RNA sequence: GGUUUUGUAGUGUAAUUAACAUUUUAGAUUGCAAAUCUAUAGAUGCGGGUAAUCUCCGUCAAAACUU
Number, nucleotide and partner (000 for none) at each position: 001g066002g065003u064004u063005u062006u061007g060008u000009a000010g022011u021012g020013u019014a000015a000016u000017u000018a000019a013020c012021a011022u010023u000024u000025u039026a038027g037028a036029u000030u000031g000032c000033a000034a000035a000036u028037c027038u026039a025040u000041a000042g000043a000044u000045g059046c058047g057048g056049g000050u000051a000052a000053u000054c000055u000056c048057c047058g046059u045060c007061a006062a005063a004064a003065c002066u001067u000

Description
Shown here is a 67-nucleotide RNA from Patiria pectinifera, a member of the family "tRNA". The family has 954 seed sequences and 5,335,975 matches in Rfam 15.1. Rfam describes the family as follows. Transfer RNA (tRNA) molecules are approximately 80 nucleotides in length. It is annotated as a transfer RNA. The sequence is in the family's curated seed alignment.